[Rfam]
RNA sequence: GUGGGAAAGAAGGAGCAACCCGCUUCUCACCUGUUGACGCAUAUGUGUAGUUAUCAGGUUUUGAAAUUCAUAGCAUUCACGACUAUUUAUACGAAUGUAGUGCGGGUUCUCAUGACUCGCGCUUUUUUAGUUUU
Numbered sequence: 001g002u003g004g005g006a007a008a009g010a011a012g013g014a015g016c017a018a019c020c021c022g023c024u025u026c027u028c029a030c031c032u033g034u035u036g037a038c039g040c041a042u043a044u045g046u047g048u049a050g051u052u053a054u055c056a057g058g059u060u061u062u063g064a065a066a067u068u069c070a071u072a073g074c075a076u077u078c079a080c081g082a083c084u085a086u087u088u089a090u091a092c093g094a095a096u097g098u099a100g101u102g103c104g105g106g107u108u109c110u111c112a113u114g115a116c117u118c119g120c121g122c123u124u125u126u127u128u129a130g131u132u133u134u
Stems, first nucleotide, its partner, number of pairs: 011027006029059003036052003039048002101121008

A member of the RNA family "Ribosomal protein L20 leader" from Heyndrickxia ginsengihumi, 134 nucleotides long.
The source organism's lineage runs through Bacteria, Bacilli, Caryophanales, Bacillaceae and Heyndrickxia.
Rfam links the family to the GO term regulation of gene expression.
Pairs were carried over by alignment from the consensus structure, which was predicted with CMfinder.